[Rfam]
Nucleotides: 082
Stems, first nucleotide, its partner, number of pairs: 008044006018038003022034003055079003060075002063072001
Number, partner (000 for none) and nucleotide at each position: 001000u002000u003000u004000g005000g006000a007000g008044u009043c010042g011041g012040c013039g014000u015000a016000g017000c018038g019037g020036u021000c022034c023033g024032g025000g026000u027000c028000a029000u030000c031000g032024c033023c034022g035000a036020a037019c038018u039013c040012g041011c042010c043009g044008a045000g046000g047000a048000c049000c050000c051000g052000g053000g054000c055079g056078c057077c058000g059000a060075g061074g062000a063072c064000g065000a066000c067000g068000c069000c070000g071000a072063g073000c074061c075060c076000g077057g078056g079055u080000u081000g082000g